[Rfam]
RNA sequence: UGUAGUAGCAGCGAAAGUCGGGUUAGAAUCCUGACGGCCGAAAGGGCAAGGGUUCCUCAGCACUGUUCGUCAACUGAGGGUUAGCCGGUCCUAAGUGGCAUCGUAACUCGCGUGUCACAAAAGGGAAACUGGUUAAUAUUCCAGUGCCACAGUGCAGUGAAAGCCGACGCUCUGGGGUCGACCGAACCGGGCCAUCGCCCGGUCGAACUGUCCAAAUCCGUGGAAGCCGUAAUGGCACGAAGCGGACGAACGGCAGGAUAGCGAAAGUCGGUUCAACCUAGAGCCCGUGAAAAGGCGAGCACUGUGUCCGUACCGAGAUCCGACACAGGUGCCCAUGGCGGCGAAAGCCAAGGCCUGU
Dot-bracket structure: ................((((((.......))))))((((....((((..((...((((((...((.....)).))))))......(((.((...((((((.((.....))..))))))....))...(((((........)))))..((((((((.......(((...((((((((...(((((.(((((........)))))....((((.....(((((....(((.....))).....)))))......)))).....(....).)))))...)))))))).........)))..)))))))).)))..)).....((......)).)))).((((.......)))).))))...
RNA: Archaeal large subunit ribosomal RNA, nucleotides 1364 to 1721
Organism: Halovenus carboxidivorans